Annotation
Shown here is a 145-nucleotide part of an RNA from Naegleria lovaniensis, a member of the family "Eukaryotic small subunit ribosomal RNA". The base pairs follow the family's consensus structure, which is taken from published work. For this family Rfam cites "Crystal structure of the ribosome at 5.5 A resolution" (Yusupov et al., Science, 2001). The family has 90 seed sequences and 75,755 matches in Rfam 15.1. Its Rfam clan is "SSU clan".
[Rfam]
RNA sequence: CCGCCCGUCGCUCCUACCGAUGGGACGAAGAGAUGAACCUGGCGGACCAAACCGUAAGGUGAGGGAAACCAGUUAAAUCUAUUCGUCUGUAGGAAGGAAAAGUCGUAACAAGGUCUUCGUAGGUGAACCUGCGUAGGGAUCAUUU
Numbered sequence: 001c002c003g004c005c006c007g008u009c010g011c012u013c014c015u016a017c018c019g020a021u022g023g024g025a026c027g028a029a030g031a032g033a034u035g036a037a038c039c040u041g042g043c044g045g046a047c048c049a050a051a052c053c054g055u056a057a058g059g060u061g062a063g064g065g066a067a068a069c070c071a072g073u074u075a076a077a078u079c080u081a082u083u084c085g086u087c088u089g090u091a092g093g094a095a096g097g098a099a100a101a102g103u104c105g106u107a108a109c110a111a112g113g114u115c116u117u118c119g120u121a122g123g124u125g126a127a128c129c130u131g132c133g134u135a136g137g138g139a140u141c142a143u144u145u
Base pairs, nucleotide, nucleotide: 001112003109006105007104009102012098013097014096015095017093018092021089023088024087025086026085027084028083029082031080032079033078034077037074039072040071041070042069047064048063051060052059053058114137115136116135118133119132120131121130122129123128